[Rfam]
RNA sequence: ACUGCUCCUAGAAGCACUCCAAGUGUGGCUGCUGUGUCACAUAAGCAUCUGUAGGUGGCAGACAGGAGAGAGGCUAAGGUUAUGCUCAGUGUUCUGACCUGUGAACAUCUAAGUGAUUAAUAUACUAACACU
Numbered sequence: 001a002c003u004g005c006u007c008c009u010a011g012a013a014g015c016a017c018u019c020c021a022a023g024u025g026u027g028g029c030u031g032c033u034g035u036g037u038c039a040c041a042u043a044a045g046c047a048u049c050u051g052u053a054g055g056u057g058g059c060a061g062a063c064a065g066g067a068g069a070g071a072g073g074c075u076a077a078g079g080u081u082a083u084g085c086u087c088a089g090u091g092u093u094c095u096g097a098c099c100u101g102u103g104a105a106c107a108u109c110u111a112a113g114u115g116a117u118u119a120a121u122a123u124a125c126u127a128a129c130a131c132u
Stems, first nucleotide, its partner, number of pairs: 002061005007055004014048001020045001024041006068129001071126002075122002083115002086112001088110002090107005